The record is a 102-nucleotide RNA from Geomicrobium sp. JCM 19038, which matches "Purine riboswitch aptamer" in Rfam.
RNA sequence: ACAAAAUCAUCAAUGAUACCUCAUAUAACAACAAGGAUAUGGCUUGUAAGUCUCUACCAAGACACCGUAAAUGUCUUGACUAUGAUCGGUAUACUUUUGACU
Number, nucleotide and partner (000 for none) at each position: 001a000002c000003a000004a000005a000006a000007u000008c000009a000010u000011c000012a000013a000014u000015g000016a000017u000018a000019c000020c000021u085022c084023a083024u082025a081026u000027a000028a000029c000030a000031a047032c046033a045034a044035g043036g000037a000038u000039a000040u000041g000042g000043c035044u034045u033046g032047u031048a000049a000050g000051u000052c000053u000054c000055u000056a000057c000058c078059a077060a076061g075062a074063c073064a072065c000066c000067g000068u000069a000070a000071a000072u064073g063074u062075c061076u060077u059078g058079a000080c000081u025082a024083u023084g022085a021086u000087c000088g000089g000090u000091a000092u000093a000094c000095u000096u000097u000098u000099g000100a000101c000102u000
On this family, see Mandal et al., Cell 2003: "Riboswitches Control Fundamental Biochemical Pathways in Bacillus subtilis and Other Bacteria". A search with the family's covariance model found it, with a score of 78 bits. Rfam links the family to the GO term purine nucleobase biosynthetic process.